RNA sequence: AGCGCAAAGGAUGAGCAACAGAGGGACUUAAUGCUGAAAUCUGAUGUUAACACGCAGUGUACUGAUGUGC
Numbered sequence: 001a002g003c004g005c006a007a008a009g010g011a012u013g014a015g016c017a018a019c020a021g022a023g024g025g026a027c028u029u030a031a032u033g034c035u036g037a038a039a040u041c042u043g044a045u046g047u048u049a050a051c052a053c054g055c056a057g058u059g060u061a062c063u064g065a066u067g068u069g070c
Stems, first nucleotide, its partner, number of pairs: 002070005

About this RNA: The family of this 70-nucleotide RNA sequence from Octodon degus is "Small nucleolar RNA SNORD82". Lineage of the source: Eukaryota > Euteleostomi > Sarcopterygii > Eutheria > Octodon. Rfam's curators write: snoRNA U82 or Z25 is found in both humans and mice. Its family is annotated with nucleolus and RNA processing in the Gene Ontology. For this family Rfam cites "Purified box C/D snoRNPs are able to reproduce site-specific 2'-O-methylation of target RNA in vitro" (Galardi et al., Mol Cell Biol, 2002). Rfam 15.1 lists 649 matches to the family in 590 species.